[Rfam]
RNA sequence: ACUAAAAAUCUGGAUUAACCAAAGACAGCAGGUGCAAGUCGCUUAAUAUCCUGCCGAGGUUAGAAGAUAUAAAAUUUAAGAUUAAAGAUCAAGCAGAACACUGCUUACAUUUUGAUCGAUUAGAUUUUCAGUCUUCAACCUCGGCCAAUCGAGCCGGGGAUUUUUUAUGGCGAA
Numbered sequence: 001a002c003u004a005a006a007a008a009u010c011u012g013g014a015u016u017a018a019c020c021a022a023a024g025a026c027a028g029c030a031g032g033u034g035c036a037a038g039u040c041g042c043u044u045a046a047u048a049u050c051c052u053g054c055c056g057a058g059g060u061u062a063g064a065a066g067a068u069a070u071a072a073a074a075u076u077u078a079a080g081a082u083u084a085a086a087g088a089u090c091a092a093g094c095a096g097a098a099c100a101c102u103g104c105u106u107a108c109a110u111u112u113u114g115a116u117c118g119a120u121u122a123g124a125u126u127u128u129c130a131g132u133c134u135u136c137a138a139c140c141u142c143g144g145c146c147a148a149u150c151g152a153g154c155c156g157g158g159g160a161u162u163u164u165u166u167a168u169g170g171c172g173a174a
Stems, first nucleotide, its partner, number of pairs: 028054005034042002139159007

The record is a 174-nucleotide RNA sequence from Lyngbya sp. PCC 8106, which matches "Ribosomal protein L10 leader" in Rfam. From the family's description: This family is a putative r-protein leader autoregulatory structure found in B. subtilis and other low-GC Gram-positive bacteria. It is located in the 5' untranslated regions of mRNAs encoding ribosomal proteins L10 and L12 (rplJ-rplL). A Rho-independent transcription terminator structure that is probably involved in regulation is included at the 3' end. It scores 61 bits against the family's covariance model. The family's consensus secondary structure was predicted with CMfinder. The family's RNA type in Rfam is cis-regulatory leader.